RNA: Purine riboswitch aptamer
Organism: Paenibacillus sp. UNC496MF
RNA sequence: UUCGCAGCAGCUCGGAUCGUUCGUAUAGCCUCGCAGCAGGGCGAGGGUUUCUACAGGAAGCCGUAACUUCCUAACUACGAAUAUGGAUUCAUCCCCG
Number, nucleotide and partner (000 for none) at each position: 001u000002u000003c000004g000005c000006a000007g000008c000009a000010g000011c000012u000013c000014g000015g000016a000017u000018c000019g082020u081021u080022c079023g078024u077025a076026u000027a000028g000029c046030c045031u044032c043033g042034c041035a000036g000037c000038a000039g000040g000041g034042c033043g032044a031045g030046g029047g000048u000049u000050u000051c000052u000053a000054c000055a072056g071057g070058a069059a068060g067061c000062c000063g000064u000065a000066a000067c060068u059069u058070c057071c056072u055073a000074a000075c000076u025077a024078c023079g022080a021081a020082u019083a000084u000085g000086g000087a000088u000089u000090c000091a000092u000093c000094c000095c000096c000097g000